The record is a 117-nucleotide sequence from Streptomyces sp. Ru73, which matches "Streptomyces-metK RNA" in Rfam. The source organism's lineage runs through Bacteria, Bacillati, Actinomycetota, Actinomycetes and Streptomyces. The family's RNA type in Rfam is small RNA. It scores 112 bits against the family's covariance model.
RNA sequence: ACGAGACUGCGUGCCCGAACUGCACGUCCGACCGAUAAACUGGCCGUGGAUCGCGCCGAGCGCAGCUCUCGGCCGGUCCGUCAAUGAUCAGACAGCAGCCGCUGCAACCCCAGGGAG
Number, nucleotide and partner (000 for none) at each position: 001a000002c000003g000004a000005g000006a000007c000008u000009g000010c000011g000012u000013g000014c000015c000016c000017g000018a000019a000020c000021u000022g000023c000024a000025c000026g000027u000028c000029c000030g000031a000032c000033c000034g000035a000036u000037a000038a000039a000040c000041u000042g000043g000044c000045c000046g000047u000048g079049g078050a077051u076052c075053g074054c000055g000056c072057c071058g070059a069060g068061c000062g000063c000064a000065g000066c000067u000068c060069u059070c058071g057072g056073c000074c053075g052076g051077u050078c049079c048080g000081u000082c000083a000084a000085u000086g000087a000088u000089c000090a000091g000092a000093c104094a103095g102096c101097a000098g000099c000100c000101g096102c095103u094104g093105c000106a000107a000108c000109c000110c000111c000112a000113g000114g000115g000116a000117g000